Rfam assigns this 102-nucleotide sequence from Lysinibacillus sp. 2017 to the family "Purine riboswitch aptamer". Pairs were carried over by alignment from the consensus structure, which is taken from published work. NCBI's taxonomy places the organism under Bacteria, Bacillati, Bacilli, Caryophanales, Lysinibacillus. Rfam 15.1 lists 4,097 matches to the family in 1,411 species.

[Rfam]
RNA sequence: GAAAAUAAAUAAAAGUGCCUUCAUAUAAGUCUGGUAAUACGGUCCAGAUGUAUCUACUAAGUUACCUUAAAUAACUUAUCUAUGACGGUGGGUUUUGUUAUA
Numbered sequence: 001g002a003a004a005a006u007a008a009a010u011a012a013a014a015g016u017g018c019c020u021u022c023a024u025a026u027a028a029g030u031c032u033g034g035u036a037a038u039a040c041g042g043u044c045c046a047g048a049u050g051u052a053u054c055u056a057c058u059a060a061g062u063u064a065c066c067u068u069a070a071a072u073a074a075c076u077u078a079u080c081u082a083u084g085a086c087g088g089u090g091g092g093u094u095u096u097g098u099u100a101u102a
Stems, first nucleotide, its partner, number of pairs: 018088002021085005029049006058078007